Shown here is a 76-nucleotide RNA sequence from Tupaia belangeri, a member of the family "Small nucleolar RNA SNORD83".

RNA sequence: GCCACAUGAUGUUUGCACUGAGAAGUGAGCGCUCUGCGCAGGGAUGACCUUAAUCUAUCACCCUUGACUGAUGGCU
Numbered sequence: 001g002c003c004a005c006a007u008g009a010u011g012u013u014u015g016c017a018c019u020g021a022g023a024a025g026u027g028a029g030c031g032c033u034c035u036g037c038g039c040a041g042g043g044a045u046g047a048c049c050u051u052a053a054u055c056u057a058u059c060a061c062c063c064u065u066g067a068c069u070g071a072u073g074g075c076u
Stems, first nucleotide, its partner, number of pairs: 001075004029039004
The source organism's lineage runs through Eukaryota, Chordata, Tetrapoda, Scandentia and Tupaia belangeri. Rfam 15.1 lists 1,393 matches to the family in 644 species. Rfam classes the family as a C/D-box small nucleolar RNA. Pairs were carried over by alignment from the consensus structure, which was predicted with PFOLD.